[Rfam]
RNA sequence: CUCAUUUUGAAAUAAAUGUGAGCUCGGGAGUAAUGAGGAGUGAUGAAAGGAUUUAUUCAUCGCUCCUGAGCUCACAUUUAUCCCAUAAUGG
Numbered sequence: 001c002u003c004a005u006u007u008u009g010a011a012a013u014a015a016a017u018g019u020g021a022g023c024u025c026g027g028g029a030g031u032a033a034u035g036a037g038g039a040g041u042g043a044u045g046a047a048a049g050g051a052u053u054u055a056u057u058c059a060u061c062g063c064u065c066c067u068g069a070g071c072u073c074a075c076a077u078u079u080a081u082c083c084c085a086u087a088a089u090g091g
Base pairs, nucleotide, nucleotide: 003090004089005088006087008085009084012081013080014079015078016077017076018075019074020073021072022071023070024069025068026067027066028065029064030063033060034059035058036057

The record is a 91-nucleotide RNA from Glycine max, which matches "MIR1523 microRNA precursor family" in Rfam. Pairs were carried over by alignment from the consensus structure, which was predicted with RNAalifold. Taxonomically the source falls in Glycine subgen. Soja (Eukaryota, Magnoliopsida, Mesangiospermae, Phaseoleae).